[Rfam]
RNA: Small nucleolar RNA Z103
RNA sequence: GAGGAUAUGACGACCCUUUCCCCAGAUGAUCGACAGUGAACAUACUGAGCGCUAUAAUUUCUCAUUUGAGAAAACCAAGCCAGAAUUCUAAUCCUC
Number, nucleotide and partner (000 for none) at each position: 001g096002a095003g094004g093005a092006u000007a000008u000009g000010a000011c000012g000013a000014c000015c000016c000017u000018u000019u000020c000021c000022c000023c000024a000025g000026a000027u000028g000029a000030u000031c000032g000033a000034c000035a000036g000037u000038g000039a000040a000041c000042a000043u000044a000045c000046u000047g000048a000049g000050c000051g000052c000053u000054a000055u000056a000057a000058u000059u000060u000061c000062u000063c000064a000065u000066u000067u000068g000069a000070g000071a000072a000073a000074a000075c000076c000077a000078a000079g000080c000081c000082a000083g000084a000085a000086u000087u000088c000089u000090a000091a000092u005093c004094c003095u002096c001